Notes
This 68-nucleotide RNA from Mola mola belongs to the Rfam family "miR-430 microRNA precursor family".
RNA sequence: AUGAUCACCCCAAAUGGAGACACUGAUAAUUUUGAUCUUCAUAAGUGCUUCUCUUUGGGGUUGUCUUG
Numbered sequence: 001a002u003g004a005u006c007a008c009c010c011c012a013a014a015u016g017g018a019g020a021c022a023c024u025g026a027u028a029a030u031u032u033u034g035a036u037c038u039u040c041a042u043a044a045g046u047g048c049u050u051c052u053c054u055u056u057g058g059g060g061u062u063g064u065c066u067u068g
Stems, first nucleotide, its partner, number of pairs: 004064002007061005014055001016052004021047004026042002